[Rfam]
RNA sequence: GGUUCUCACGCACCACAUCCGCUAGGCAGGAGCGGGGGAACCACCUUCGGAGCCACCUUCUCGCAGGGCUCCUCGGGGUGAAGCCGGACGGUCCUUCGGGGCCGCACGGCCGGGCAACCUUUCGCCCGAACCCGACAGCUCACCCCGUAGGCCUGGAGAGGUACU
Dot-bracket structure: ............((...(((........)))((((((....(................................)(((.....(((....................)))..((((........))))...))).........)))))).))..............

The family of this 165-nucleotide RNA sequence from Phycicoccus flavus is "c-di-AMP riboswitch aptamer (ydaO/yuaA leader)".